[Rfam]
RNA: Y RNA-like
Organism: Pararhizobium polonicum
RNA sequence: GUGACGAAUGCUUUGGAAACUACAGUUCACACUUCCGUGUCGCGGGUUCGAAUCCCGCCGGGUCCGCCAUACUAUGGACCCGUAGCUCAGUCGGUAGAGCAGGAAUGUUUCCAAAAACCCUCGUCGUCGCGGA
Numbered sequence: 001g002u003g004a005c006g007a008a009u010g011c012u013u014u015g016g017a018a019a020c021u022a023c024a025g026u027u028c029a030c031a032c033u034u035c036c037g038u039g040u041c042g043c044g045g046g047u048u049c050g051a052a053u054c055c056c057g058c059c060g061g062g063u064c065c066g067c068c069a070u071a072c073u074a075u076g077g078a079c080c081c082g083u084a085g086c087u088c089a090g091u092c093g094g095u096a097g098a099g100c101a102g103g104a105a106u107g108u109u110u111c112c113a114a115a116a117a118c119c120c121u122c123g124u125c126g127u128c129g130c131g132g133a
Stems, first nucleotide, its partner, number of pairs: 002129006013114007023103001036102001042058005049094001059082008085100004